[Rfam]
RNA sequence: UCGAUAGAUAGAGAGCUUCCUUGAGUCCAUUCACAGGUUGUGAUAUGAUCCAAUUAGCUUCCGAAUCAUUCAUCCAAAUACUGAGUCACCAAAAUUCAAACUAAACUCGUUAAAUGAAUGUAUGAUGCGGUAGACAAAUUGGGUUAUUGAUUCUCUAUGAUUGGACUGAAGGUAGCUCCCUCCCCUUUUUGA
Number, nucleotide and partner (000 for none) at each position: 001u000002c000003g000004a000005u000006a000007g000008a000009u000010a000011g000012a000013g178014a177015g176016c175017u174018u000019c172020c171021u000022u000023g000024a167025g166026u165027c164028c163029a162030u000031u000032c000033a000034c000035a000036g155037g000038u000039u000040g000041u000042g000043a000044u000045a000046u000047g000048a000049u000050c000051c000052a000053a000054u000055u000056a000057g000058c133059u132060u000061c130062c129063g128064a000065a000066u000067c124068a123069u122070u000071c000072a000073u000074c000075c116076a000077a000078a000079u000080a000081c000082u000083g000084a000085g000086u000087c000088a000089c000090c000091a000092a000093a000094a000095u000096u000097c000098a000099a000100a000101c000102u000103a000104a000105a000106c000107u000108c000109g000110u000111u000112a000113a000114a000115u000116g075117a000118a000119u000120g000121u000122a069123u068124g067125a000126u000127g000128c063129g062130g061131u000132a059133g058134a000135c000136a000137a000138a000139u000140u000141g000142g000143g000144u000145u000146a000147u000148u000149g000150a000151u000152u000153c000154u000155c036156u000157a000158u000159g000160a000161u000162u029163g028164g027165a026166c025167u024168g000169a000170a000171g020172g019173u000174a017175g016176c015177u014178c013179c000180c000181u000182c000183c000184c000185c000186u000187u000188u000189u000190u000191g000192a000
This 192-nucleotide sequence from Brassica oleracea belongs to the Rfam family "MIR159 microRNA precursor family". Lineage of the source: Eukaryota > Streptophytina > Pentapetalae > Brassicaceae > Brassica oleracea. Rfam's curators put it in the seed alignment. Its family is annotated with RISC complex and miRNA-mediated post-transcriptional gene silencing in the Gene Ontology. Pairs were carried over by alignment from the consensus structure, which was predicted with WAR. A reference for the family is Jones-Rhoades and Bartel (2004), "Computational identification of plant microRNAs and their targets, including a stress-induced miRNA", Mol Cell.